[Rfam]
RNA sequence: UGCGAGCUUCCUUAGAUCCGCUUUCCGGAAGGUCAAACCAUCUCCUGAGGGCAUUCACACUUGUGGGUUUGUCUUCAGUUGAUGGUGGCCUUUCCUCUGCCUUACGCCGAGUUUAAUGGAAAGAGCAUGAGUCAAUGGCACGCUAUAGUAAUUCCUUCACCACUUUGCCUAACCUGAUCUACAGAGACUUGAUCCUCGGAUCAGGACUUCGUAGCAUCAGGGUCCCU
Numbered sequence: 001u002g003c004g005a006g007c008u009u010c011c012u013u014a015g016a017u018c019c020g021c022u023u024u025c026c027g028g029a030a031g032g033u034c035a036a037a038c039c040a041u042c043u044c045c046u047g048a049g050g051g052c053a054u055u056c057a058c059a060c061u062u063g064u065g066g067g068u069u070u071g072u073c074u075u076c077a078g079u080u081g082a083u084g085g086u087g088g089c090c091u092u093u094c095c096u097c098u099g100c101c102u103u104a105c106g107c108c109g110a111g112u113u114u115a116a117u118g119g120a121a122a123g124a125g126c127a128u129g130a131g132u133c134a135a136u137g138g139c140a141c142g143c144u145a146u147a148g149u150a151a152u153u154c155c156u157u158c159a160c161c162a163c164u165u166u167g168c169c170u171a172a173c174c175u176g177a178u179c180u181a182c183a184g185a186g187a188c189u190u191g192a193u194c195c196u197c198g199g200a201u202c203a204g205g206a207c208u209u210c211g212u213a214g215c216a217u218c219a220g221g222g223u224c225c226c227u
Stems, first nucleotide, its partner, number of pairs: 002143003006139003011131004019125001021123006027094006037086004045078003050073004056067001058065002095111003099107002157222002166213003173205008184197003
Small nucleolar RNA SNORA53: a 227-nucleotide sequence from Linnemannia hyalina. Rfam links the family to the GO terms nucleolus and RNA processing. By type it is an H/ACA-box small nucleolar RNA.